RNA: Purine riboswitch aptamer
Organism: Neobacillus mesonae
RNA sequence: CAAAAUUAAUAAAUAAAUUGUCAUAUAACUCCAAUAAUAUGGUUUGGAGGUUUCUUGCAGGGACCAAUAAUUCCUGAUUUCGAAGAAGGUACAGGUGCGU
Numbered sequence: 001c002a003a004a005a006u007u008a009a010u011a012a013a014u015a016a017a018u019u020g021u022c023a024u025a026u027a028a029c030u031c032c033a034a035u036a037a038u039a040u041g042g043u044u045u046g047g048a049g050g051u052u053u054c055u056u057g058c059a060g061g062g063a064c065c066a067a068u069a070a071u072u073c074c075u076g077a078u079u080u081c082g083a084a085g086a087a088g089g090u091a092c093a094g095g096u097g098c099g100u
Base pairs, nucleotide, nucleotide: 018086019085021083022082025079029049030048031047032046033045034044058076059075060074061073062072063071